[Rfam]
RNA: U4 spliceosomal RNA
Organism: Mustela putorius
RNA sequence: AGCUUUGUGCACUGGCAGUAUCAUAGCCAAUGGGGUUUAUCCAACGCGAGAUUAUUGCUAAUUGAAAAACUGAUAUUGAUACGUUAUUAUUAACUGAAGCUCAUGCUUUAUACAGAUUAUUUUUGAUUUCUAAAAAUUUAA
Number, nucleotide and partner (000 for none) at each position: 001a000002g000003c000004u000005u000006u000007g000008u000009g000010c000011a000012c000013u000014g000015g000016c000017a000018g000019u000020a052021u051022c050023a000024u048025a000026g047027c046028c000029a000030a000031u000032g000033g000034g042035g041036u000037u000038u000039a000040u000041c035042c034043a000044a000045c000046g027047c026048g024049a000050g022051a021052u020053u000054a000055u000056u000057g000058c000059u000060a000061a000062u000063u000064g000065a000066a000067a000068a000069a000070c000071u000072g000073a000074u000075a000076u000077u000078g000079a000080u000081a000082c000083g000084u000085u000086a117087u116088u115089a111090u110091u000092a108093a107094c000095u105096g104097a000098a000099g000100c000101u000102c000103a000104u096105g095106c000107u093108u092109u000110a090111u089112a000113c000114a000115g088116a087117u086118u000119a000120u000121u000122u000123u000124u000125g000126a000127u000128u000129u000130c000131u140132a139133a138134a000135a000136a000137u000138u133139u132140a131141a000